[Rfam]
RNA sequence: ACACGACAAGGGCAAAUCUGAUGAAAGUCAGAGACGCAAAGCUAUAGGGACUAAAGUGAUAAACGAUGUCAGCCAGCUGCCGAA
Numbered sequence: 001a002c003a004c005g006a007c008a009a010g011g012g013c014a015a016a017u018c019u020g021a022u023g024a025a026a027g028u029c030a031g032a033g034a035c036g037c038a039a040a041g042c043u044a045u046a047g048g049g050a051c052u053a054a055a056g057u058g059a060u061a062a063a064c065g066a067u068g069u070c071a072g073c074c075a076g077c078u079g080c081c082g083a084a
Base pairs, nucleotide, nucleotide: 012037013036017032018031019030020029021028022027040078041077042076043075047074048073049070050069051068056064057063
RNA: c-di-GMP-I riboswitch aptamer
Organism: Paenibacillus validus